[Rfam]
A member of the RNA family "Nucleoid-associated noncoding RNA 4 (CssrE)" from Enterobacteriaceae bacterium strain FGI 57, 77 nucleotides long. By type it is a small RNA. In E. coli small RNA transcribed from repeated extragenic palindromic element (REP325) called nucleoid-associated ncRNA 4 (nRNA4) collaborates HU protein in condensing the DNA. The secondary structure but not the sequence of the RNA is important in nucleoid condensation. Also identified in Shigella as CssrE. Rfam 15.1 lists 870 matches to the family in 32 species. The match comes from Rfam's covariance-model search (60 bits). For this family Rfam cites "A New Noncoding RNA Arranges Bacterial Chromosome Organization" (Qian et al., MBio, 2015). The family's consensus secondary structure is taken from published work. Taxonomically the source falls in Enterobacteriaceae (Bacteria, Pseudomonadati, Pseudomonadota, Enterobacterales).
RNA sequence: GGCCUGAUAAGACGCGUUAGCGUCGCAUCAGGCAGUAGGCACCGUUGCCGGAUGCGGCGCGUGCGCCUUAUCCGGCC
Numbered sequence: 001g002g003c004c005u006g007a008u009a010a011g012a013c014g015c016g017u018u019a020g021c022g023u024c025g026c027a028u029c030a031g032g033c034a035g036u037a038g039g040c041a042c043c044g045u046u047g048c049c050g051g052a053u054g055c056g057g058c059g060c061g062u063g064c065g066c067c068u069u070a071u072c073c074g075g076c077c
Stems, first nucleotide, its partner, number of pairs: 002033007011024004047076008056067004